This 85-nucleotide RNA sequence from Alicyclobacillus tolerans belongs to the Rfam family "c-di-GMP-I riboswitch aptamer". GEMM was predicted in a large-scale screen for bacterial structured RNA regulatory elements. A search with the family's covariance model found it, with a score of 79 bits. The base pairs follow the family's consensus structure, which is taken from published work. Its family is annotated with cyclic-di-GMP binding in the Gene Ontology.

RNA sequence: CGAUGCUCAGGGCAAACCAGUAGAAAUGCUGGGACGCAAAGCUUCGGGUCUACGGGUUAAUACCUAUGAUAGCCGGGCUGCCAUG
Numbered sequence: 001c002g003a004u005g006c007u008c009a010g011g012g013c014a015a016a017c018c019a020g021u022a023g024a025a026a027u028g029c030u031g032g033g034a035c036g037c038a039a040a041g042c043u044u045c046g047g048g049u050c051u052a053c054g055g056g057u058u059a060a061u062a063c064c065u066a067u068g069a070u071a072g073c074c075g076g077g078c079u080g081c082c083a084u085g
Base pairs, nucleotide, nucleotide: 012037013036017032018031019030020029021028022027040079041078042077043076045075046074047073048070049069050068055064056063057062